mraW RNA: a 113-nucleotide RNA.
RNA sequence: GAUUUUUCGUUUGGCUUGAGGCCUCUCUCUGCAAAUAGUGUCCACCGACUUUCUUCCCCGAAGCCGGAAGCAAUGUUUGCAGAGAGGGACCUCGGUUAAACGCAAAAAAACCG
Numbered sequence: 001g002a003u004u005u006u007u008c009g010u011u012u013g014g015c016u017u018g019a020g021g022c023c024u025c026u027c028u029c030u031g032c033a034a035a036u037a038g039u040g041u042c043c044a045c046c047g048a049c050u051u052u053c054u055u056c057c058c059c060g061a062a063g064c065c066g067g068a069a070g071c072a073a074u075g076u077u078u079g080c081a082g083a084g085a086g087g088g089a090c091c092u093c094g095g096u097u098a099a100a101c102g103c104a105a106a107a108a109a110a111c112c113g
Base pairs, nucleotide, nucleotide: 010100011099012098013097014096015095016094020091021090023088024087025086026085027084028083029082030081031080032079033078034077035076036075037074039072040071045067046066047065049063050062051061

Rfam's curators put it in the seed alignment.